[Rfam]
RNA sequence: UUCAUCGUGAGAUGAAAUCUGAAGGAAGCUGGCGGCAAACAUCUGACCUAACGAACAGAAACUUCAUAUAAGGCAUAUAACCAUGGAUAAGAUUGCAUAACAAAUCAAAGUCCUAUAGCUAUUCGGAAUGGUUGGUGGAGUUUCCUUGAGCUUAGCGAAAAAAUGAAGUAGGUAUAAGAUGGAAAGAUAAUGUU
Numbered sequence: 001u002u003c004a005u006c007g008u009g010a011g012a013u014g015a016a017a018u019c020u021g022a023a024g025g026a027a028g029c030u031g032g033c034g035g036c037a038a039a040c041a042u043c044u045g046a047c048c049u050a051a052c053g054a055a056c057a058g059a060a061a062c063u064u065c066a067u068a069u070a071a072g073g074c075a076u077a078u079a080a081c082c083a084u085g086g087a088u089a090a091g092a093u094u095g096c097a098u099a100a101c102a103a104a105u106c107a108a109a110g111u112c113c114u115a116u117a118g119c120u121a122u123u124c125g126g127a128a129u130g131g132u133u134g135g136u137g138g139a140g141u142u143u144c145c146u147u148g149a150g151c152u153u154a155g156c157g158a159a160a161a162a163a164u165g166a167a168g169u170a171g172g173u174a175u176a177a178g179a180u181g182g183a184a185a186g187a188u189a190a191u192g193u194u
Stems, first nucleotide, its partner, number of pairs: 001016006028194001030192002036186001040181005046173005062168006075141001078134006085113004091106004

This 194-nucleotide RNA from Hallella bergensis belongs to the Rfam family "Group II catalytic intron D1-D4-3". The pairing is the family consensus, mapped onto this sequence. The organism belongs to Hallella bergensis, within Bacteria.